[Rfam]
RNA sequence: CCUGUGGAGAGUACUAGAACUUGUGAGUAGUAUCUAGUUUUAUCUAGUACGAAAGCAUACUCGACGAAGUAGGAA
Numbered sequence: 001c002c003u004g005u006g007g008a009g010a011g012u013a014c015u016a017g018a019a020c021u022u023g024u025g026a027g028u029a030g031u032a033u034c035u036a037g038u039u040u041u042a043u044c045u046a047g048u049a050c051g052a053a054a055g056c057a058u059a060c061u062c063g064a065c066g067a068a069g070u071a072g073g074a075a
Base pairs, nucleotide, nucleotide: 001073002072003071004070005069009062010061011060012059013058022057023056024055030050031049032048035046036045
Shown here is a 75-nucleotide RNA, a member of the family "RAGATH-18 RNA". Rfam's curators put it in the seed alignment. Pairs were carried over by alignment from the consensus structure, which is taken from published work. The family's RNA type in Rfam is small RNA. Rfam's curators write: Actinobacteria, Firmicutes, Fusobacteria, Thermotogae (1 example).